[Rfam]
RNA sequence: ACGCCUGAUGGUAAAACUAUAUUAAUUUCAUCAUAAUCUUCAAAAAAAAUAAUUAAAAAGAAGAUUAUGAUAUAAU
Numbered sequence: 001a002c003g004c005c006u007g008a009u010g011g012u013a014a015a016a017c018u019a020u021a022u023u024a025a026u027u028u029c030a031u032c033a034u035a036a037u038c039u040u041c042a043a044a045a046a047a048a049a050u051a052a053u054u055a056a057a058a059a060g061a062a063g064a065u066u067a068u069g070a071u072a073u074a075a076u
Stems, first nucleotide, its partner, number of pairs: 030071008
RNA: dfrA-dnaX RNA